The family of this 160-nucleotide sequence from Morus notabilis is "U1 spliceosomal RNA". The family's RNA type in Rfam is spliceosomal small nuclear RNA. The literature on the family includes a 1997 paper in Nucleic Acids Res by Zwieb, "The uRNA database". From the family's description: U1 is a small nuclear RNA (snRNA) component of the spliceosome (involved in pre-mRNA splicing). Its 5' end forms complementary base pairs with the 5' splice junction, thus defining the 5' donor site of an intron. There are significant differences in sequence and secondary structure between metazoan and yeast U1 snRNAs, the latter being much longer (568 nucleotides as compared to 164 nucleotides in human). Nevertheless, secondary structure predictions suggest that all U1 snRNAs share a 'common core' consisting of helices I, II, the proximal region of III, and IV. This family does not contain the larger yeast sequences. The family's consensus secondary structure is taken from published work.
RNA sequence: UUACAUACCUGGACGGGGUCAAUGGGCGAUCAGGAAGGCCCAUGGCCUAGGUGGGUGGCUUCCAUUGCACUUUGGAGGUGCACUUGCCUAACAUCUCCCCCUAGUGGGAGACUGUACGUCGUAAUUUGUGGUUGUGGGGGCUGUGUUCGCGCGGCCCCUG
Numbered sequence: 001u002u003a004c005a006u007a008c009c010u011g012g013a014c015g016g017g018g019u020c021a022a023u024g025g026g027c028g029a030u031c032a033g034g035a036a037g038g039c040c041c042a043u044g045g046c047c048u049a050g051g052u053g054g055g056u057g058g059c060u061u062c063c064a065u066u067g068c069a070c071u072u073u074g075g076a077g078g079u080g081c082a083c084u085u086g087c088c089u090a091a092c093a094u095c096u097c098c099c100c101c102u103a104g105u106g107g108g109a110g111a112c113u114g115u116a117c118g119u120c121g122u123a124a125u126u127u128g129u130g131g132u133u134g135u136g137g138g139g140g141c142u143g144u145g146u147u148c149g150c151g152c153g154g155c156c157c158c159u160g
Stems, first nucleotide, its partner, number of pairs: 012120004016048006023042005049089004054085001059078002062075002091115003094111003098107002136159005142153004